[Rfam]
RNA sequence: GCAGUGUUUCGGCGCUGUCACCGGUACCGUUUUACGGUGCGGGAGGAAAGUCCGGGCAGCAUAGGGCGCUCCACUUCCGAAAAUAGAAGCUAUUGGUAACAGUAGGUUAAGGCAGAAGAAAACAACCGCCAUUCCUAUGAAUGGCAAGGGUGAGAAGGCGGUGUAAGAGACCACCAACAGAUGGGUGAUCAUCUGGUUGUGCCCGCUGGAGGCUGCAAGUUCGCGUAAACCAUCGUAUACGGGUUGCCCGCUCGUUCCGAUAAGGGCGAUGGAGGGUAGAACGCUUGAGCUGUGAGGUGACUCACAGAUUAGAUAAAUGGCAGGCACUCUGAUGCCUGAAAAGACAUCGGGGAACAGAACCCGGCUUACAGAAACACUGCUUUC
Numbered sequence: 001g002c003a004g005u006g007u008u009u010c011g012g013c014g015c016u017g018u019c020a021c022c023g024g025u026a027c028c029g030u031u032u033u034a035c036g037g038u039g040c041g042g043g044a045g046g047a048a049a050g051u052c053c054g055g056g057c058a059g060c061a062u063a064g065g066g067c068g069c070u071c072c073a074c075u076u077c078c079g080a081a082a083a084u085a086g087a088a089g090c091u092a093u094u095g096g097u098a099a100c101a102g103u104a105g106g107u108u109a110a111g112g113c114a115g116a117a118g119a120a121a122a123c124a125a126c127c128g129c130c131a132u133u134c135c136u137a138u139g140a141a142u143g144g145c146a147a148g149g150g151u152g153a154g155a156a157g158g159c160g161g162u163g164u165a166a167g168a169g170a171c172c173a174c175c176a177a178c179a180g181a182u183g184g185g186u187g188a189u190c191a192u193c194u195g196g197u198u199g200u201g202c203c204c205g206c207u208g209g210a211g212g213c214u215g216c217a218a219g220u221u222c223g224c225g226u227a228a229a230c231c232a233u234c235g236u237a238u239a240c241g242g243g244u245u246g247c248c249c250g251c252u253c254g255u256u257c258c259g260a261u262a263a264g265g266g267c268g269a270u271g272g273a274g275g276g277u278a279g280a281a282c283g284c285u286u287g288a289g290c291u292g293u294g295a296g297g298u299g300a301c302u303c304a305c306a307g308a309u310u311a312g313a314u315a316a317a318u319g320g321c322a323g324g325c326a327c328u329c330u331g332a333u334g335c336c337u338g339a340a341a342a343g344a345c346a347u348c349g350g351g352g353a354a355c356a357g358a359a360c361c362c363g364g365c366u367u368a369c370a371g372a373a374a375c376a377c378u379g380c381u382u383u384c
Base pairs, nucleotide, nucleotide: 001380002379003378004377005376006375007374008373009372010371011369012325013324015323016322017321018320019319021043022042024040025039026038027037028036029035048367049366050365052364053363054362055361056360057215058214059213060212064261069211070210071209072208073207074089075088076087077086090105092103093102094101095100106206107205111204112202113201114200126149127148128145129144130143131142132141133140134139157175158174160172161171162170177197178195179194180193181192182191183190184189219282220281221280222279230272231271232270233269234268252266253265255263256262290307291306292305293304294303295302296301
The record is a 384-nucleotide RNA sequence from Hoylesella pleuritidis, which matches "Bacterial RNase P class A" in Rfam. Pairs were carried over by alignment from the consensus structure, which is taken from published work. Rfam describes the family as follows. Ribonuclease P (RNase P) is a ubiquitous endoribonuclease, found in archaea, bacteria and eukarya as well as chloroplasts and mitochondria.